Bacteroidete tryptophan peptide leader RNA: a 117-nucleotide sequence from Gillisia hiemivivida. Rfam links the family to the GO terms S-adenosylmethionine metabolic process and regulation of gene expression.

RNA sequence: UGAUACUUAUAUUUGGACCAAUGAAAAAUAAUACAGUACAUACUUGGUGGUGGAGUAGCUUACGUCAGAACGUCGUGAAGUAACACUGCUAUAGUAUUUUCAUAUACAAGGCUUGUC
Numbered sequence: 001u002g003a004u005a006c007u008u009a010u011a012u013u014u015g016g017a018c019c020a021a022u023g024a025a026a027a028a029u030a031a032u033a034c035a036g037u038a039c040a041u042a043c044u045u046g047g048u049g050g051u052g053g054a055g056u057a058g059c060u061u062a063c064g065u066c067a068g069a070a071c072g073u074c075g076u077g078a079a080g081u082a083a084c085a086c087u088g089c090u091a092u093a094g095u096a097u098u099u100u101c102a103u104a105u106a107c108a109a110g111g112c113u114u115g116u117c
Stems, first nucleotide, its partner, number of pairs: 036101001038099001040097005046090002049087004059080003062073003
Pairs were carried over by alignment from the consensus structure, which is taken from published work.
It scores 62 bits against the family's covariance model.